A member of the RNA family "small nucleolar RNA snoR137" from Mikania micrantha, 144 nucleotides long. The family's consensus secondary structure was predicted with RNAalifold. By type it is an H/ACA-box small nucleolar RNA. The match comes from Rfam's covariance-model search (112 bits). Gene Ontology terms of the family: nucleolus and RNA processing.
[Rfam]
RNA sequence: GUUGCUUCAUAAUGGUGAACUCUCUCAAACUCGAAUGAGAAAAGUUCAAGUUUCCGGAGCAUAGAUUAAAUAUUGUUAACGCCAGUAUUAAACAGCUCGAUGUGUAUUUAAUCGCAUCGACGUUACCUGUCUCCUGGCACAUUU
Numbered sequence: 001g002u003u004g005c006u007u008c009a010u011a012a013u014g015g016u017g018a019a020c021u022c023u024c025u026c027a028a029a030c031u032c033g034a035a036u037g038a039g040a041a042a043a044g045u046u047c048a049a050g051u052u053u054c055c056g057g058a059g060c061a062u063a064g065a066u067u068a069a070a071u072a073u074u075g076u077u078a079a080c081g082c083c084a085g086u087a088u089u090a091a092a093c094a095g096c097u098c099g100a101u102g103u104g105u106a107u108u109u110a111a112u113c114g115c116a117u118c119g120a121c122g123u124u125a126c127c128u129g130u131c132u133c134c135u136g137g138c139a140c141a142u143u144u
Base pairs, nucleotide, nucleotide: 003061004060005059006058007057008056016048017047018046019045020044021042023040024039025038081138082137083136084135085134087132094124095123096122098119099118100117101116102115